The record is an 80-nucleotide RNA sequence from Tetraodon nigroviridis, which matches "mir-219 microRNA precursor family" in Rfam.
Nucleotides: 080
Base pairs, nucleotide, nucleotide: 002079003078004077005076006075007074010071011070012069014068015067016066017065018064021061022060023059024058025057026056027055028054029053030052031051
Number, partner (000 for none) and nucleotide at each position: 001000c002079u003078a004077g005076c006075a007074g008000c009000u010071g011070a012069u013000u014068g015067u016066c017065c018064a019000a020000a021061c022060g023059c024058a025057a026056u027055u028054c029053u030052u031051g032000u033000g034000a035000a036000a037000a038000u039000c040000c041000a042000a043000a044000g045000c046000c047000u048000a049000c050000c051031c052030g053029a054028g055027a056026a057025u058024u059023g060022u061021g062000c063000c064018u065017g066016g067015a068014c069012a070011u071010c072000u073000g074007u075006u076005g077004c078003u079002g080000g